Rfam assigns this 508-nucleotide part of an RNA from Paremcibacter congregatus to the family "Bacterial large subunit ribosomal RNA". Pairs were carried over by alignment from the consensus structure, which is taken from published work. NCBI's taxonomy places the organism under Bacteria, Pseudomonadati, Pseudomonadota, Emcibacterales, Paremcibacter.

RNA sequence: GUUAUAAGAGCAUAUGGUGGAUGCCUUGGCGAAUAGAGGCGAUGAAGGACGUGUUACGCUGCGAUAAGCGUCGGGGAGCUGCGAAAAAGCUUUGAUCCGACGAUUUCCGAAUGGGGAAACCCGGCUAUUUAAUAGUCAUCCCUACCUGAAUACAUAGGGUAGGGAAGCGAACUCAGGGAACUGAAACAUCUAAGUACCUGAAGGAAAGGACAUCAACCGAGACUCCGUUAGUAGCGGCGAGCGAACGCGGACCAGGCCAGUGGCUUGAUUUGAAAAACGAGAAUGCAAUGGAAAGUGCAGCCUUAGUGGGUGAUAGCCCCGUAUCGGUAAAUUCAUUUCAAGUCCUCGAGUAAGGCGGAACACGUGAAAUUCUGUCUGAACAUGGGGGGACCACCCUCCAAGCCUAAGUACUCCUAUUCGACCGAUAGUGAACAAGUACCGUGAGGGAAAGGUGAAAAGCACCCCGAUAAGGGGAGUGAAAUAGAUCCUGAAACCGUAUGCUUACAAU
Dot-bracket structure: .......((((((((((.....(((..(((((((((((((......((((((........))).....(((((((..(((.......))).....)))))))...)))....(((....)))((((((...)))))).(((((((((.........))))))))).))...((((((.....((....))......))))).).........((....))..((((((.....((.....))....)))))..((((......(((((..((((...(((...((((........))))..(...).(((.......)))...))).....))))..)))))..........((((((((.........))))))))......(((((......)))))..))))..)..)).))))))).))...............((....))....)).........((((.....)))).............).....)))))))))).....
Numbered sequence: 001g002u003u004a005u006a007a008g009a010g011c012a013u014a015u016g017g018u019g020g021a022u023g024c025c026u027u028g029g030c031g032a033a034u035a036g037a038g039g040c041g042a043u044g045a046a047g048g049a050c051g052u053g054u055u056a057c058g059c060u061g062c063g064a065u066a067a068g069c070g071u072c073g074g075g076g077a078g079c080u081g082c083g084a085a086a087a088a089g090c091u092u093u094g095a096u097c098c099g100a101c102g103a104u105u106u107c108c109g110a111a112u113g114g115g116g117a118a119a120c121c122c123g124g125c126u127a128u129u130u131a132a133u134a135g136u137c138a139u140c141c142c143u144a145c146c147u148g149a150a151u152a153c154a155u156a157g158g159g160u161a162g163g164g165a166a167g168c169g170a171a172c173u174c175a176g177g178g179a180a181c182u183g184a185a186a187c188a189u190c191u192a193a194g195u196a197c198c199u200g201a202a203g204g205a206a207a208g209g210a211c212a213u214c215a216a217c218c219g220a221g222a223c224u225c226c227g228u229u230a231g232u233a234g235c236g237g238c239g240a241g242c243g244a245a246c247g248c249g250g251a252c253c254a255g256g257c258c259a260g261u262g263g264c265u266u267g268a269u270u271u272g273a274a275a276a277a278c279g280a281g282a283a284u285g286c287a288a289u290g291g292a293a294a295g296u297g298c299a300g301c302c303u304u305a306g307u308g309g310g311u312g313a314u315a316g317c318c319c320c321g322u323a324u325c326g327g328u329a330a331a332u333u334c335a336u337u338u339c340a341a342g343u344c345c346u347c348g349a350g351u352a353a354g355g356c357g358g359a360a361c362a363c364g365u366g367a368a369a370u371u372c373u374g375u376c377u378g379a380a381c382a383u384g385g386g387g388g389g390a391c392c393a394c395c396c397u398c399c400a401a402g403c404c405u406a407a408g409u410a411c412u413c414c415u416a417u418u419c420g421a422c423c424g425a426u427a428g429u430g431a432a433c434a435a436g437u438a439c440c441g442u443g444a445g446g447g448a449a450a451g452g453u454g455a456a457a458a459g460c461a462c463c464c465c466g467a468u469a470a471g472g473g474g475a476g477u478g479a480a481a482u483a484g485a486u487c488c489u490g491a492a493a494c495c496g497u498a499u500g501c502u503u504a505c506a507a508u
Stems, first nucleotide, its partner, number of pairs: 008503010023488001024452002028423002030420007037412002039168002047108003050063003069102007078090003113122003123137006139165009172203001173201005183190002213220002223408001224251005234242002254405004264342005271335004278326003284299004302306001308320003353377008384399005439446002462474004

The family is grouped with related families in Rfam's "LSU clan".